Rfam assigns this 382-nucleotide part of an RNA from Halobacteriovorax marinus to the family "Bacterial large subunit ribosomal RNA". It is one of the family's seed sequences. The organism belongs to Halobacteriovorax marinus, within Bacteria. The base pairs follow the family's consensus structure, which is taken from published work.
RNA sequence: GAUAAGAAAUGUGAGAAUCAUUUCCGCCGAAAAUCUAAGGGUUCCUGGACCAGGUGACUCCGUCCAGGGUUAGUCGGAUCCUAAGGUGAGGCCGAAAGGCGUAAUCGAUGGGUAACGGGUUAAUAUUCCCGUACUUGGUAAUUGUCGCUUGACAUGAAGGAGUGACGGAGAAAGGUAGCAGAGCCAACUGUUGGAUGUUGGUUUAAGAGUGUAGGAGGAGAUCUUAGGCAAAUCCGGGAUCUUGUUAACUCUGAGACUUGAUGACGAGGGCCUAGCCCGAAGUUUGUGAUCCUAUGCUUCCCAGAAAAGCUUCGCAUGAAGAUAAUUAUCAAUCCGUACCGUAAACCGACACAGGUAGAUGAGAAGAGAAUUCUCAGGCGCU
Numbered sequence: 001g002a003u004a005a006g007a008a009a010u011g012u013g014a015g016a017a018u019c020a021u022u023u024c025c026g027c028c029g030a031a032a033a034u035c036u037a038a039g040g041g042u043u044c045c046u047g048g049a050c051c052a053g054g055u056g057a058c059u060c061c062g063u064c065c066a067g068g069g070u071u072a073g074u075c076g077g078a079u080c081c082u083a084a085g086g087u088g089a090g091g092c093c094g095a096a097a098g099g100c101g102u103a104a105u106c107g108a109u110g111g112g113u114a115a116c117g118g119g120u121u122a123a124u125a126u127u128c129c130c131g132u133a134c135u136u137g138g139u140a141a142u143u144g145u146c147g148c149u150u151g152a153c154a155u156g157a158a159g160g161a162g163u164g165a166c167g168g169a170g171a172a173a174g175g176u177a178g179c180a181g182a183g184c185c186a187a188c189u190g191u192u193g194g195a196u197g198u199u200g201g202u203u204u205a206a207g208a209g210u211g212u213a214g215g216a217g218g219a220g221a222u223c224u225u226a227g228g229c230a231a232a233u234c235c236g237g238g239a240u241c242u243u244g245u246u247a248a249c250u251c252u253g254a255g256a257c258u259u260g261a262u263g264a265c266g267a268g269g270g271c272c273u274a275g276c277c278c279g280a281a282g283u284u285u286g287u288g289a290u291c292c293u294a295u296g297c298u299u300c301c302c303a304g305a306a307a308a309g310c311u312u313c314g315c316a317u318g319a320a321g322a323u324a325a326u327u328a329u330c331a332a333u334c335c336g337u338a339c340c341g342u343a344a345a346c347c348g349a350c351a352c353a354g355g356u357a358g359a360u361g362a363g364a365a366g367a368g369a370a371u372u373c374u375c376a377g378g379c380g381c382u
Base pairs, nucleotide, nucleotide: 006024007023008022009021010020011019025380026379027378028377033360034359035358036357039340040339044068045067046066047065048064049063053061054060075336076335077334078333080111081110085106086105087104089102091100092099093098115132116131117130118129119128135332136331137330138329139328140327141326142325143324144323145322153318154317159313160312161311162310163309167300168299169298170297173293174292175291178287179286180285181284182283183202184201185200186199187198188197203264204263207259208258209257210256214252215251216250219242220241221240222239223238224237225236227235228234268278269277270276271275346355347354362374363373364372365371